[Rfam]
RNA sequence: UGGUCAUUACCAAGGCUUUUAGAAUGCAGUUUCUCAUUUGCUGUGGACAUGACCAGAAAAAAAAUUUCCCACUGGGCUUUUUCUCCUGCUACCUUGCUAGCAUUGCAGCCUAUUGGGAACAUUG
Numbered sequence: 001u002g003g004u005c006a007u008u009a010c011c012a013a014g015g016c017u018u019u020u021a022g023a024a025u026g027c028a029g030u031u032u033c034u035c036a037u038u039u040g041c042u043g044u045g046g047a048c049a050u051g052a053c054c055a056g057a058a059a060a061a062a063a064a065u066u067u068c069c070c071a072c073u074g075g076g077c078u079u080u081u082u083c084u085c086c087u088g089c090u091a092c093c094u095u096g097c098u099a100g101c102a103u104u105g106c107a108g109c110c111u112a113u114u115g116g117g118a119a120c121a122u123u124g
Stems, first nucleotide, its partner, number of pairs: 003053005010046003026041004068117004075110004087102003
A member of the RNA family "Small nucleolar RNA SNORA32" from Equus asinus, 124 nucleotides long. Rfam links the family to the GO terms nucleolus and RNA processing. The match comes from Rfam's covariance-model search (130 bits). The base pairs follow the family's consensus structure, which was predicted with RNAfold.